RNA sequence: GGUGCCGUUCGUUAGCUGAGGCUCCUUCGCGGAUACAGGCCAGCGACCCCGAACGUCCACCGACGCCCCGGGUCAGGACAGGCCAUCCCGGCCUAAGGGGUGGUUCCGAUUGGCUCCUCCACCUUUCGGGGUGGGGGUUCACGCCGCGAAGUGCCAAAGGUCUUACGAGGAGACGUACUU
Numbered sequence: 001g002g003u004g005c006c007g008u009u010c011g012u013u014a015g016c017u018g019a020g021g022c023u024c025c026u027u028c029g030c031g032g033a034u035a036c037a038g039g040c041c042a043g044c045g046a047c048c049c050c051g052a053a054c055g056u057c058c059a060c061c062g063a064c065g066c067c068c069c070g071g072g073u074c075a076g077g078a079c080a081g082g083c084c085a086u087c088c089c090g091g092c093c094u095a096a097g098g099g100g101u102g103g104u105u106c107c108g109a110u111u112g113g114c115u116c117c118u119c120c121a122c123c124u125u126u127c128g129g130g131g132u133g134g135g136g137g138u139u140c141a142c143g144c145c146g147c148g149a150a151g152u153g154c155c156a157a158a159g160g161u162c163u164u165a166c167g168a169g170g171a172g173a174c175g176u177a178c179u180u
Base pairs, nucleotide, nucleotide: 006175007174008173009172011166012165013096015161016160017159020155021154022153025151026150027149028148029147030146031145032144039114040113041112042111043110045074046073047072048071049070054065055064056063057062081105082104083103084102087099088098089097116137117136118135119134120133121132122131123130124129

Shown here is a 180-nucleotide sequence, a member of the family "M-box riboswitch aptamer (ykoK leader)". Rfam describes the family as follows. M-box riboswitch, also know as ykoK leader is described as a metaloregulatory RNA that sense divalent metals and function as a genetic control element of genes related to divalent metal transport in bacteria. It was first reported upstream of the B.subtilis ykoK gene and genes with related functions in other bacteria.